[Rfam]
RNA sequence: UAAAAAGGAACGUCGACUAAAAGCCGCCACGUCCUGUGGCGAACGUUGACAUCAGCGCAUCCCUGUCCG
Numbered sequence: 001u002a003a004a005a006a007g008g009a010a011c012g013u014c015g016a017c018u019a020a021a022a023g024c025c026g027c028c029a030c031g032u033c034c035u036g037u038g039g040c041g042a043a044c045g046u047u048g049a050c051a052u053c054a055g056c057g058c059a060u061c062c063c064u065g066u067c068c069g
Base pairs, nucleotide, nucleotide: 012050013049014048015047016046017045026040027039028038029037030036058069
Dot-bracket structure: ...........((((((........(((((.....)))))....)))))).......(..........)
Shown here is a 69-nucleotide RNA sequence from Peribacillus cavernae, a member of the family "Bacillaceae-1 RNA". The family's consensus secondary structure is taken from published work.